RNA sequence: CUGCACCUGUCGGGGACACAGCAUCUGCCUUAUUAUGACUUUACAGGUGGUCGGCUGAUGUAGGGUCCUGUAGCCAUACAAUUGGCUGUCAAAGCUUAUUU
Numbered sequence: 001c002u003g004c005a006c007c008u009g010u011c012g013g014g015g016a017c018a019c020a021g022c023a024u025c026u027g028c029c030u031u032a033u034u035a036u037g038a039c040u041u042u043a044c045a046g047g048u049g050g051u052c053g054g055c056u057g058a059u060g061u062a063g064g065g066u067c068c069u070g071u072a073g074c075c076a077u078a079c080a081a082u083u084g085g086c087u088g089u090c091a092a093a094g095c096u097u098a099u100u101u
Base pairs, nucleotide, nucleotide: 005048006047007046008045009044010043013069014068015067017065021061022060023059024058025057027055028054037052038051039050040049072087073086074085075084076083